[Rfam]
RNA sequence: AUGGAUGUGAGGAUCCUUUCCCCAGCUGAUCGACUAUGAUUAUACUGAGCGCAUAUGUAAUCCCUCUUAGAAGGAUUCGAGCCAGAAAUCUGAUCCAU
Dot-bracket structure: (((((........................................................................................)))))
Rfam assigns this 98-nucleotide RNA from Zizania palustris to the family "Small nucleolar RNA Z103". The base pairs follow the family's consensus structure, which was predicted with PFOLD. On this family, see Chen et al., Nucleic Acids Res 2003: "The high diversity of snoRNAs in plants: identification and comparative study of 120 snoRNA genes from Oryza sativa".